Rfam assigns this 70-nucleotide RNA from Acyrthosiphon pisum to the family "mir-3017 microRNA precursor family".
Its family is annotated with miRNA-mediated post-transcriptional gene silencing and RISC complex in the Gene Ontology.
The organism belongs to Acyrthosiphon, within Eukaryota.
The sequence is in the family's curated seed alignment.

RNA sequence: CCGUGUUCUGUGACUGACUCGGCUGGCGCCGGACUGGCGGGGGCCAGCCGGUCUGUCACGGAACACGGGA
Dot-bracket structure: ((((((((((((((.(((.(((..(((...............)))..)))))).))))))))))))))..